[Rfam]
RNA: mir-675 microRNA precursor family
Organism: Suricata suricatta
RNA sequence: CCCAGGGUCUGGCGCGGAGAAGGCCCACAGUGCCCUUGGUGACACUGCACGCCUUCACCGCCCAGCCCCUGGG
Numbered sequence: 001c002c003c004a005g006g007g008u009c010u011g012g013c014g015c016g017g018a019g020a021a022g023g024c025c026c027a028c029a030g031u032g033c034c035c036u037u038g039g040u041g042a043c044a045c046u047g048c049a050c051g052c053c054u055u056c057a058c059c060g061c062c063c064a065g066c067c068c069c070u071g072g073g
Stems, first nucleotide, its partner, number of pairs: 001073007009065004014061004019056006028047005